Rfam assigns this 87-nucleotide RNA from Gossypium harknessii to the family "MIR7486 microRNA precursor family".

RNA sequence: CUUAAGGAAGCGUUUUGCCCACGUGGACAGAAAUCGCUCCCUCAAGGGCGCGCUUUAUGUCCAAGUAGGAAAAACGCUUCCUCAAGG
Numbered sequence: 001c002u003u004a005a006g007g008a009a010g011c012g013u014u015u016u017g018c019c020c021a022c023g024u025g026g027a028c029a030g031a032a033a034u035c036g037c038u039c040c041c042u043c044a045a046g047g048g049c050g051c052g053c054u055u056u057a058u059g060u061c062c063a064a065g066u067a068g069g070a071a072a073a074a075c076g077c078u079u080c081c082u083c084a085a086g087g
Stems, first nucleotide, its partner, number of pairs: 001086003005082012018069002021066001024063006031056003035052003040047002

Source information:
The base pairs follow the family's consensus structure, which was predicted with RNAalifold. The source organism's lineage runs through Eukaryota, Streptophyta, Streptophytina, Malvales and Gossypium. Rfam links the family to the GO terms RISC complex and miRNA-mediated post-transcriptional gene silencing.